RNA sequence: AUACUUACCUGGACGUGGUCAAUUGGUGAUCAGCAAGGCCCAUGGCCUAAGUAAGCGACUUCCAUUGCACUUCGGUAGGGCGCUUGCCUAAGGUCUCCUCAAAGUAGGAGAGCCUACGUCAUAAUUUGUGGCAGUGGGGGCCUGCGUUCGCGCGGCCCUCGU
Numbered sequence: 001a002u003a004c005u006u007a008c009c010u011g012g013a014c015g016u017g018g019u020c021a022a023u024u025g026g027u028g029a030u031c032a033g034c035a036a037g038g039c040c041c042a043u044g045g046c047c048u049a050a051g052u053a054a055g056c057g058a059c060u061u062c063c064a065u066u067g068c069a070c071u072u073c074g075g076u077a078g079g080g081c082g083c084u085u086g087c088c089u090a091a092g093g094u095c096u097c098c099u100c101a102a103a104g105u106a107g108g109a110g111a112g113c114c115u116a117c118g119u120c121a122u123a124a125u126u127u128g129u130g131g132c133a134g135u136g137g138g139g140g141c142c143u144g145c146g147u148u149c150g151c152g153c154g155g156c157c158c159u160c161g162u
Stems, first nucleotide, its partner, number of pairs: 012120004017047005023042001025040003049089001051087001055083003059079003062075002091115003094111003098107002135161005143154004